[Rfam]
This 80-nucleotide sequence from Crocodylus porosus belongs to the Rfam family "Mammalian CPEB3 ribozyme". The source organism's lineage runs through Eukaryota, Sarcopterygii, Amniota, Longirostres and Crocodylus.
RNA sequence: AGAGGUCAAGAGUUGGAGGCCGUAGCAGAAGCACUCAUGGCGUGGCCAUGUCAGAUUCCGACAAAUCUAUGAAUUCUGCU
Numbered sequence: 001a002g003a004g005g006u007c008a009a010g011a012g013u014u015g016g017a018g019g020c021c022g023u024a025g026c027a028g029a030a031g032c033a034c035u036c037a038u039g040g041c042g043u044g045g046c047c048a049u050g051u052c053a054g055a056u057u058c059c060g061a062c063a064a065a066u067c068u069a070u071g072a073a074u075u076c077u078g079c080u
Base pairs, nucleotide, nucleotide: 013048018047019046020045021044024080025079026078027077028076029075030074031043032042053068054067055066056065057064